Annotation: Shown here is a 179-nucleotide RNA from Thalassobacter sp. 16PALIMAR09, a member of the family "Ruegeria cis52 sRNA". It scores 106 bits against the family's covariance model. For this family Rfam cites "Experimental Identification of Small Non-Coding RNAs in the Model Marine Bacterium Ruegeria pomeroyi DSS-3" (Rivers et al., Front Microbiol, 2016). Its family is annotated with regulation of gene expression in the Gene Ontology.

RNA sequence: UGCGGAGGGCGUGCUUUAGGACGAUGGUUUUGAACGCCACGCCUUUGAGACGCGCGGUCCGGACGUAUUGCGCGGUCAUGACCUCAGUCAUUGAGGCGCGGGUCAUCCGGGCGAUGUAGCCCAUCCCGUAAAGUGCGAUCGUGAUCACCGGCAGGAAGAAGUUCCAGAAGUUGGCGUCU
Numbered sequence: 001u002g003c004g005g006a007g008g009g010c011g012u013g014c015u016u017u018a019g020g021a022c023g024a025u026g027g028u029u030u031u032g033a034a035c036g037c038c039a040c041g042c043c044u045u046u047g048a049g050a051c052g053c054g055c056g057g058u059c060c061g062g063a064c065g066u067a068u069u070g071c072g073c074g075g076u077c078a079u080g081a082c083c084u085c086a087g088u089c090a091u092u093g094a095g096g097c098g099c100g101g102g103u104c105a106u107c108c109g110g111g112c113g114a115u116g117u118a119g120c121c122c123a124u125c126c127c128g129u130a131a132a133g134u135g136c137g138a139u140c141g142u143g144a145u146c147a148c149c150g151g152c153a154g155g156a157a158g159a160a161g162u163u164c165c166a167g168a169a170g171u172u173g174g175c176g177u178c179u
Base pairs, nucleotide, nucleotide: 005140006139009136010135011134012133015130016128019126020125021124028123038113040111042109046105047104048103051100052099053098054097055075057073058072060070061069062068082096083095084094085093086092147177149174151172154165155164156163157162
Annotation: Pairs were carried over by alignment from the consensus structure, which was predicted with RNAfold. Taxonomically the source falls in Thalassobacter (Bacteria, Pseudomonadati, Alphaproteobacteria, Rhodobacterales).